Selenocysteine insertion sequence 1: a 65-nucleotide RNA from Orycteropus afer.

RNA sequence: GAGUCCUUAAUGAUGUGGAUGGAGUAAAGCUUUUGAGACUUCCAUUUGCUGAUGUGGAAUGACUC
Number, nucleotide and partner (000 for none) at each position: 001g065002a064003g063004u062005c061006c000007u000008u000009a000010a000011u000012g000013a000014u000015g049016u048017g047018g046019a045020u044021g043022g042023a041024g040025u000026a000027a000028a000029g000030c037031u036032u000033u000034u000035g000036a031037g030038a000039c000040u024041u023042c022043c021044a020045u019046u018047u017048g016049c015050u000051g000052a000053u000054g000055u000056g000057g000058a000059a000060u000061g005062a004063c003064u002065c001
The organism belongs to Orycteropus afer, within Eukaryota. The family's RNA type in Rfam is cis-regulatory element. Rfam links the family to the GO term selenocysteine incorporation. The base pairs follow the family's consensus structure, which is taken from published work. A search with the family's covariance model found it, with a score of 36 bits. Rfam describes the family as follows. The incorporation of selenocysteine into a protein sequence is directed by an in-frame UGA codon (usually a stop codon) within the coding region of the mRNA. Selenoprotein mRNAs contain a conserved secondary structure in the 3' UTR that is required for the distinction of UGA stop from UGA selenocysteine.